This 69-nucleotide RNA sequence from Saccharothrix variisporea belongs to the Rfam family "ASpks TB sRNA". The base pairs follow the family's consensus structure, which is taken from published work. Rfam 15.1 lists 9,052 matches to the family in 683 species.
RNA sequence: CUUGAUCGAGCCGAGCCACAGGGGUGCCGAGCGGUCCUGGCCGUAGGUCGCCAGCAGGGCCUGCGCCUC
Numbered sequence: 001c002u003u004g005a006u007c008g009a010g011c012c013g014a015g016c017c018a019c020a021g022g023g024g025u026g027c028c029g030a031g032c033g034g035u036c037c038u039g040g041c042c043g044u045a046g047g048u049c050g051c052c053a054g055c056a057g058g059g060c061c062u063g064c065g066c067c068u069c
Stems, first nucleotide, its partner, number of pairs: 014025001016023002026064002032059001037054003041050001043048001

By type it is an antisense RNA. On this family, see Arnvig and Young, Mol Microbiol 2009: "Identification of small RNAs in Mycobacterium tuberculosis".